[Rfam]
RNA sequence: CACUCACGGAGUUGGCACAGCCUCUGCAUUAAAAAAUCCGACAGAUCACAUAAACACUGCCUUCAACGUGGAGGGCGGUGUUUCCCGACAGAACGGGAAUGGACAAAGGCGUCCUCGCUGGGUAACCGGCGGGACGCC
Dot-bracket structure: ...........((((((.......)))..........................(((((.((.((......)).)).))))).(((((......))))).....))).(((((((.((((((....)))))))))))))
The record is a 138-nucleotide RNA sequence from Azotobacter chroococcum, which matches "Pseudomonas sRNA P11" in Rfam. Rfam describes the family as follows. This small RNA (sRNA) was computationally identified in the genome of the opportunistic pathogen Pseudomonas aeruginosa and its expression verified by northern blot analysis. The literature on the family includes a 2006 paper in Nucleic Acids Res by Livny et al., "Identification of 17 Pseudomonas aeruginosa sRNAs and prediction of sRNA-encoding genes in 10 diverse pathogens using the bioinformatic tool sRNAPredict2". The family's RNA type in Rfam is non-coding RNA gene.